[Rfam]
RNA sequence: AGUAAUAUUUUUUACUAAAGUAAUUAAAAUAAAGUAAUUAUAGUAAAGGAGCAACACCAAACCUCUUGAUAUAACAAGAAAUUUAGUAUUGCUCCUUUA
Numbered sequence: 001a002g003u004a005a006u007a008u009u010u011u012u013u014a015c016u017a018a019a020g021u022a023a024u025u026a027a028a029a030u031a032a033a034g035u036a037a038u039u040a041u042a043g044u045a046a047a048g049g050a051g052c053a054a055c056a057c058c059a060a061a062c063c064u065c066u067u068g069a070u071a072u073a074a075c076a077a078g079a080a081a082u083u084u085a086g087u088a089u090u091g092c093u094c095c096u097u098u099a
Base pairs, nucleotide, nucleotide: 045098046097047096048095049094050093051092052091053090054089056087057086059084060083061082064079065078066077067076
This 99-nucleotide RNA sequence from Potentilla indica belongs to the Rfam family "Plastid-psbA-1 3UTR RNA". Rfam's curators put it in the seed alignment. Taxonomically the source falls in Potentilla (Eukaryota, Viridiplantae, Gunneridae, Potentilleae). Rfam's curators write: Plastid psbA-1 is a non-coding RNA (ncRNA) present in plastids. The literature on the family includes a 2023 paper in Plant Commun by Richter et al., "Retrograde signaling in plants: A critical review focusing on the GUN pathway and beyond". Pairs were carried over by alignment from the consensus structure, which was predicted with LocARNA.